[Rfam]
RNA: Archaeal small subunit ribosomal RNA, nucleotides 527 to 884
Organism: Candidatus Caldarchaeum subterraneum
Nucleotides: 358
Stems, first nucleotide, its partner, number of pairs: 001321003009318001011198004016192001018191003022085007031077001033073007045063007089185003092181003100174007107151002111147008122133003159166002203244006212238002217233004255317006264294013299306002323350003332343004
Number, partner (000 for none) and nucleotide at each position: 001321g002320g003319c004000u005000u006000a007000a008000a009318g010000c011198g012197u013196c014195c015000g016192u017000a018191g019190c020189c021000g022085g023084c024083u025082c026081g027080g028079c029000g030000u031077g032000c033073u034072c035071c036070g037069c038068g039067u040000u041000a042000a043000a044000u045063c046062c047061a048060g049059c050058a051057g052000c053000c054000u055000a056000a057051c058050u059049g060048c061047u062046g063045g064000g065000c066000c067039g068038c069037g070036c071035g072034g073033a074000u075000g076000a077031c078000u079028g080027c081026c082025g083024g084023g085022c086000u087000u088000g089185g090184g091183g092181g093180u094179g095000g096000g097000a098000g099000a100174g101173g102172g103171c104170a105169g106168c107151g108150g109000u110000a111147u112146u113145c114144c115143c116142g117141g118140g119000g120000u121000a122133g123132g124131g125000g126000u127000a128000a129000a130000a131124u132123c133122c134000a135000c136000u137000g138000a139000u140118c141117c142116c143115g144114g145113g146112a147111g148000g149000a150108c151107c152000a153000c154000c155000a156000g157000u158000g159166g160165c161000g162000a163000a164000g165160g166159c167000g168106g169105c170104u171103g172102c173101c174100c175000a176000g177000a178000a179094c180093a181092c182000g183091c184090c185089c186000g187000a188000c189020g190019g191018u192016g193000a194000g195014g196013g197012a198011c199000g200000a201000a202000a203244g204243c205242u206241g207240g208239g209000g210000g211000a212238g213237c214000g215000a216000u217233c218232g219231g220230g221000a222000u223000u224000a225000g226000a227000u228000a229000c230220c231219c232218c233217g234000g235000u236000a237213g238212u239208c240207c241206c242205a243204g244203c245000c246000g247000u248000a249000a250000a251000c252000g253000a254000u255317g256316c257315g258314g259313g260312c261000u262000u263000g264294g265293c266292g267291u268290c269289g270288g271287a272286g273285c274284g275283g276282c277000u278000a279000c280000g281000a282276g283275c284274c285273g286272u287271u288270c289269c290268g291267g292266u293265g294264c295000a296000g297000a298000a299306g300305g301000g302000a303000a304000a305300c306299c307000a308000u309000u310000a311000a312260g313259c314258c315257c316256g317255c318009c319003g320002c321001c322000u323350g324349g325348g326000g327000a328000g329000u330000a331000c332343g333342g334341c335340c336000g337000c338000a339000a340335g341334g342333c343332u344000g345000a346000a347000a348325c349324u350323u351000a352000a353000a354000g355000g356000a357000a358000u